[Rfam]
RNA sequence: AGUGUUUUAUCCUCCACUUAAAUCGAAGGAU
Numbered sequence: 001a002g003u004g005u006u007u008u009a010u011c012c013u014c015c016a017c018u019u020a021a022a023u024c025g026a027a028g029g030a031u
Stems, first nucleotide, its partner, number of pairs: 001018004009031005014025001
Pseudoknot of upstream pseudoknot domain (UPD) of the 3'UTR: a 31-nucleotide RNA from Tobamovirus streptocarpi. The source organism's lineage runs through Viruses, Riboviria, Orthornavirae, Martellivirales and Tobamovirus streptocarpi. On this family, see Leathers et al., Mol Cell Biol 1993: "A phylogenetically conserved sequence within viral 3' untranslated RNA pseudoknots regulates translation". Rfam links the family to the GO term regulation of viral transcription.